[Rfam]
RNA sequence: CAACAUAAGAGGCAAAAUUCACCGAAAGGGAAUGACGCAAAGCCAUGGAUCUACAGUCUCACUUUUCCGGUGAGAUCAUGACAGCCAGGUUGCUGAA
Number, nucleotide and partner (000 for none) at each position: 001c000002a000003a000004c000005a000006u000007a000008a000009g000010a000011g000012g038013c037014a000015a000016a000017a033018u032019u031020c030021a000022c029023c028024g000025a000026a000027a000028g023029g022030g020031a019032a018033u017034g000035a000036c000037g013038c012039a000040a000041a091042g090043c089044c088045a000046u087047g086048g085049a000050u081051c080052u000053a000054c000055a000056g076057u075058c074059u073060c072061a071062c070063u069064u000065u000066u000067c000068c000069g063070g062071u061072g060073a059074g058075a057076u056077c000078a000079u000080g051081a050082c000083a000084g000085c048086c047087a046088g044089g043090u042091u041092g000093c000094u000095g000096a000097a000